Rfam assigns this 35-nucleotide RNA from Trichonephila clavipes to the family "S4-Flavobacteria ribosomal protein leader".
It scores 36 bits against the family's covariance model.
NCBI's taxonomy places the organism under Eukaryota, Protostomia, Panarthropoda, Orbiculariae, Trichonephila.
For this family Rfam cites "Discovery of 20 novel ribosomal leader candidates in bacteria and archaea" (Eckert and Weinberg, BMC Microbiol, 2020).
RNA sequence: AAUUAUUGAAGGAAUAUACCUUAAUUCUACUAAUU
Number, nucleotide and partner (000 for none) at each position: 001a035002a034003u033004u032005a031006u029007u000008g027009a022010a021011g020012g019013a000014a000015u000016a000017u000018a000019c012020c011021u010022u009023a000024a000025u000026u000027c008028u000029a006030c000031u005032a004033a003034u002035u001